[Rfam]
RNA sequence: CAACGCGAUUAGGCGUUUUAUGCAGAUACCCUCUGCGUACGGGCUAGAACCCCGAUCGGACUUCUACAAGGAGAAAACAAAUG
Numbered sequence: 001c002a003a004c005g006c007g008a009u010u011a012g013g014c015g016u017u018u019u020a021u022g023c024a025g026a027u028a029c030c031c032u033c034u035g036c037g038u039a040c041g042g043g044c045u046a047g048a049a050c051c052c053c054g055a056u057c058g059g060a061c062u063u064c065u066a067c068a069a070g071g072a073g074a075a076a077a078c079a080a081a082u083g
Stems, first nucleotide, its partner, number of pairs: 002017005019039007040054004

A member of the RNA family "freshwater-2 RNA", 83 nucleotides long. By type it is a cis-regulatory element. It is one of the family's seed sequences.